Description:
A member of the RNA family "Na+ riboswitch aptamer (DUF1646)" from Anaeromicropila herbilytica, 62 nucleotides long. A search with the family's covariance model found it, with a score of 53 bits. A reference for the family is White et al. (2022), "Na(+) riboswitches regulate genes for diverse physiological processes in bacteria", Nat Chem Biol.
[Rfam]
RNA sequence: GGUUGAACAAAUGUAUAAAUAAUAGAUUUGAUUCAAGAAUUUGACUUUUAGGGUGGAAAGUC
Numbered sequence: 001g002g003u004u005g006a007a008c009a010a011a012u013g014u015a016u017a018a019a020u021a022a023u024a025g026a027u028u029u030g031a032u033u034c035a036a037g038a039a040u041u042u043g044a045c046u047u048u049u050a051g052g053g054u055g056g057a058a059a060g061u062c
Stems, first nucleotide, its partner, number of pairs: 003036003006032001008030004043062007